[Rfam]
RNA sequence: GCACUGGCAGGGUGUUAUACCACUGUGUCCCAAUGCUGGGUUUUGAAAGAGAGCAACGGCAGAGAUCCAGACAGUGC
Numbered sequence: 001g002c003a004c005u006g007g008c009a010g011g012g013u014g015u016u017a018u019a020c021c022a023c024u025g026u027g028u029c030c031c032a033a034u035g036c037u038g039g040g041u042u043u044u045g046a047a048a049g050a051g052a053g054c055a056a057c058g059g060c061a062g063a064g065a066u067c068c069a070g071a072c073a074g075u076g077c
Base pairs, nucleotide, nucleotide: 001077002076003075004074005073006072010031011030012029037069038068039067040066041065042064043063044062
The record is a 77-nucleotide RNA from Leptolyngbya sp. FACHB-261, which matches "CyVA-1 RNA" in Rfam. Rfam describes the family as follows. Cyanobacteria, Acidobacteria (1 example), Verrucomicrobia (1 example). The family's consensus secondary structure is taken from published work. The source organism's lineage runs through Bacteria, Cyanobacteriota, Cyanophyceae, Leptolyngbyales and Leptolyngbya. A search with the family's covariance model found it, with a score of 57 bits.